The family of this 60-nucleotide RNA from Bradyrhizobium sp. BTAi1 is "terC RNA".
The sequence is in the family's curated seed alignment.
Rfam classes the family as a cis-regulatory element.
Taxonomically the source falls in Bradyrhizobium (Bacteria, Pseudomonadati, Pseudomonadota, Nitrobacteraceae).
Pairs were carried over by alignment from the consensus structure, which is taken from published work.

[Rfam]
RNA sequence: ACCCUGGUCCGGGCCCCUCUGGUGAAGCUGCCGGUGCUUUCACGAUGUCGGACCUGACGA
Numbered sequence: 001a002c003c004c005u006g007g008u009c010c011g012g013g014c015c016c017c018u019c020u021g022g023u024g025a026a027g028c029u030g031c032c033g034g035u036g037c038u039u040u041c042a043c044g045a046u047g048u049c050g051g052a053c054c055u056g057a058c059g060a
Base pairs, nucleotide, nucleotide: 006054007053008052009051010050011049012048022043023042024041025040026039027038028036